[Rfam]
RNA sequence: CGGAGAGGCCUUUCAGGCAUCCUCUCCUAAAAACUUCCGGCCGGUCCCUCAUGGAUCGGCCUUUUUUUAUGCCAUC
Numbered sequence: 001c002g003g004a005g006a007g008g009c010c011u012u013u014c015a016g017g018c019a020u021c022c023u024c025u026c027c028u029a030a031a032a033a034c035u036u037c038c039g040g041c042c043g044g045u046c047c048c049u050c051a052u053g054g055a056u057c058g059g060c061c062u063u064u065u066u067u068u069a070u071g072c073c074a075u076c
Base pairs, nucleotide, nucleotide: 008018009017010016011015039061040060041059042058043057044056045055046054047053
The record is a 76-nucleotide sequence from Sphingobium amiense, which matches "Makes More Granules Regulator RNA (mmgR)" in Rfam. The organism belongs to Sphingobium, within Bacteria. About the family: SuhB later renamed mmgR (makes more granules regulator) was a putative non-coding RNA found multiple times in the Agrobacterium tumefaciens genome and related alpha-proteobacteria. Other non-coding RNAs uncovered in the same analysis include: speF, ybhL, metA, and serC.Several studies inSinorhizobium meliloti showed that suhB element is indeed a non-coding RNA:firstly it was detected on Northern blot and called Sm8RNA, secondly in an RNAseq study referred to as SmelC689.The mutant phenotype's (strain lacking the small RNA) cytoplasm contains higher content of polyhydroxybutyrate (PBH)storage granules than wild type strain. The sRNA is required to limit the PBH intracellular accumulation when the nitrogen-fixing Sinorhizobium meliloti is under condition of surplus carbon in relation to nitrogen. The base pairs follow the family's consensus structure.